[Rfam]
RNA sequence: AUAGUAGAACGGUCUGUCGCUCCGAGUAUUCGGGGAGGAAAGUCCGGGCAACGCAGAGCAGCAUACUUCCUAACGGGAAGUCGGUCGUGAGGUCGAAUGAGCGUAACAGAAAACAACCGCCUUACGUAACUGUAAGGUAAGGGUGAAAAGGCAGGGUAAGAGCCUACCGACCGUUUGGCGACAAACGGUGCCGUACGCAUUAUGUGUUGAAAGUUCAAGUAUACCGAUGUAUGAGGGUUGCUCGCCCGAGUCGGAGGGUAGAACGAUGGAGACAGGCAGCGAUGCCUGCCCAAGAUAAAUGACAGACAGUACGCUAUGGCGGACUACAGAAUCCGGCUUAUAGUUCUACUAUUUUU
Numbered sequence: 001a002u003a004g005u006a007g008a009a010c011g012g013u014c015u016g017u018c019g020c021u022c023c024g025a026g027u028a029u030u031c032g033g034g035g036a037g038g039a040a041a042g043u044c045c046g047g048g049c050a051a052c053g054c055a056g057a058g059c060a061g062c063a064u065a066c067u068u069c070c071u072a073a074c075g076g077g078a079a080g081u082c083g084g085u086c087g088u089g090a091g092g093u094c095g096a097a098u099g100a101g102c103g104u105a106a107c108a109g110a111a112a113a114c115a116a117c118c119g120c121c122u123u124a125c126g127u128a129a130c131u132g133u134a135a136g137g138u139a140a141g142g143g144u145g146a147a148a149a150g151g152c153a154g155g156g157u158a159a160g161a162g163c164c165u166a167c168c169g170a171c172c173g174u175u176u177g178g179c180g181a182c183a184a185a186c187g188g189u190g191c192c193g194u195a196c197g198c199a200u201u202a203u204g205u206g207u208u209g210a211a212a213g214u215u216c217a218a219g220u221a222u223a224c225c226g227a228u229g230u231a232u233g234a235g236g237g238u239u240g241c242u243c244g245c246c247c248g249a250g251u252c253g254g255a256g257g258g259u260a261g262a263a264c265g266a267u268g269g270a271g272a273c274a275g276g277c278a279g280c281g282a283u284g285c286c287u288g289c290c291c292a293a294g295a296u297a298a299a300u301g302a303c304a305g306a307c308a309g310u311a312c313g314c315u316a317u318g319g320c321g322g323a324c325u326a327c328a329g330a331a332u333c334c335g336g337c338u339u340a341u342a343g344u345u346c347u348a349c350u351a352u353u354u355u356u
Stems, first nucleotide, its partner, number of pairs: 001352010011341001012307007020035006040339003044336005049209004056243004061205005066080005081096001083094004097200001101198005117142002119138008150168002153165003169191001170189008213264004224254005235247004271290001273288006
Rfam assigns this 356-nucleotide RNA sequence from Bacteroidetes oral taxon 274 to the family "Bacterial RNase P class A".
The organism belongs to Bacteroidetes oral taxon 274, within Bacteria.
The family's consensus secondary structure is taken from published work.